[Rfam]
RNA sequence: UUUUCAGUUUAAGUAUAUCCUAUGAGAUAUUUGGGAUAUACUUAUACUAAAA
Numbered sequence: 001u002u003u004u005c006a007g008u009u010u011a012a013g014u015a016u017a018u019c020c021u022a023u024g025a026g027a028u029a030u031u032u033g034g035g036a037u038a039u040a041c042u043u044a045u046a047c048u049a050a051a052a
Base pairs, nucleotide, nucleotide: 006048007047008046010044011043012042014040015039016038018036019035020034021033022031
Rfam assigns this 52-nucleotide RNA from Vicugna pacos to the family "mir-1302 microRNA precursor family". The match comes from Rfam's covariance-model search (64 bits). The base pairs follow the family's consensus structure, which was predicted with WAR. On this family, see Morin et al., Genome Res 2008: "Application of massively parallel sequencing to microRNA profiling and discovery in human embryonic stem cells".